[Rfam]
RNA sequence: GCCCGGCCUACCGCGACGGCGGGAAAAGGCGGUUCCUCACCGCCCUGGCCGGGCUCAUCUUUGAGGG
Numbered sequence: 001g002c003c004c005g006g007c008c009u010a011c012c013g014c015g016a017c018g019g020c021g022g023g024a025a026a027a028g029g030c031g032g033u034u035c036c037u038c039a040c041c042g043c044c045c046u047g048g049c050c051g052g053g054c055u056c057a058u059c060u061u062u063g064a065g066g067g
Stems, first nucleotide, its partner, number of pairs: 001054008011022004028044005034067006
RNA: int-alpA RNA
Organism: Magnetofaba australis